[Rfam]
RNA: c-di-GMP-I riboswitch aptamer
RNA sequence: GGGGACAAGGGGCAAACCUCGGGAAACUGAGGGACGCAAAGCCAUGGGGCUACAGUGCGAUAGGCACUACGCCAGCCAGGUUGCAGAU
Dot-bracket structure: ...........((...((((((....))))))...))..((((.((((((....((((.....))))...)))..)))))))......